[Rfam]
RNA sequence: UCGAUGAUUUAAAAUAGAUGUCUCGGUCCAGUGCGUGAAAUAUCACCCAAGAUAGCCAAAAGCGCCUGAAGUGUUGCGCAUGGAACGCGAGAGUGGUUCGGUAUAAGGCCGAGCCCUAAUAUUUAUCCAUAUCGAGG
Numbered sequence: 001u002c003g004a005u006g007a008u009u010u011a012a013a014a015u016a017g018a019u020g021u022c023u024c025g026g027u028c029c030a031g032u033g034c035g036u037g038a039a040a041u042a043u044c045a046c047c048c049a050a051g052a053u054a055g056c057c058a059a060a061a062g063c064g065c066c067u068g069a070a071g072u073g074u075u076g077c078g079c080a081u082g083g084a085a086c087g088c089g090a091g092a093g094u095g096g097u098u099c100g101g102u103a104u105a106a107g108g109c110c111g112a113g114c115c116c117u118a119a120u121a122u123u124u125a126u127c128c129a130u131a132u133c134g135a136g137g
Base pairs, nucleotide, nucleotide: 001135002134003133004132005131006130010125011124012123013122021092022091023090024089025088028083029082031081032080033079034078035077036076044073045072046071055063056062095115096114098112099111100110101109
Notes: Shown here is a 137-nucleotide RNA sequence from Polynucleobacter sp. AM-7D1, a member of the family "icd-II ncRNA motif". Rfam's curators write: icd-II ncRNA motif was located upstream of icd gene, which codes for NADP+-dependent isocitrate dehydrogenase (IDH) enzyme. icd-II has been proposed as a strong candidate riboswitch. Part of the secondary structure of icd-II includes the ribosomal binding site (RBS) of the adjacent gene wish suggest that this element can be regulating translation initiation of its associated transcript. The sequence is in the family's curated seed alignment. The base pairs follow the family's consensus structure, which is taken from published work.